The family of this 187-nucleotide RNA from a Streptomycetaceae bacterium is "c-di-AMP riboswitch aptamer (ydaO/yuaA leader)". NCBI's taxonomy places the organism under Bacteria, Actinomycetota, Actinomycetes, Kitasatosporales, Streptomycetaceae. The match comes from Rfam's covariance-model search (43 bits).
RNA sequence: CGGUGCUCGGUGCCCAGCACGUCCGGACGGGAGCGGGGGAACCAACGUGAUGCGCCGUACCCGGCUUGCCGGGUGCGGCUUGGGGUGAAGCCGUGCCCGAUCCCGGACCUGGUCCGGAGGACGCGCACGGCCGGGCCGCUCCGGCCCGAAUCCGACAGCUCACCUCGCAGGCGGCAGGAGAGGAACG
Numbered sequence: 001c002g003g004u005g006c007u008c009g010g011u012g013c014c015c016a017g018c019a020c021g022u023c024c025g026g027a028c029g030g031g032a033g034c035g036g037g038g039g040a041a042c043c044a045a046c047g048u049g050a051u052g053c054g055c056c057g058u059a060c061c062c063g064g065c066u067u068g069c070c071g072g073g074u075g076c077g078g079c080u081u082g083g084g085g086u087g088a089a090g091c092c093g094u095g096c097c098c099g100a101u102c103c104c105g106g107a108c109c110u111g112g113u114c115c116g117g118a119g120g121a122c123g124c125g126c127a128c129g130g131c132c133g134g135g136c137c138g139c140u141c142c143g144g145c146c147c148g149a150a151u152c153c154g155a156c157a158g159c160u161c162a163c164c165u166c167g168c169a170g171g172c173g174g175c176a177g178g179a180g181a182g183g184a185a186c187g
Stems, first nucleotide, its partner, number of pairs: 001170001033168006043082002083153003091130006133147004
Dot-bracket structure: (...............................((((((....((....................................))(((.....((((((............................))))))..((((.......))))...))).........)))))).).................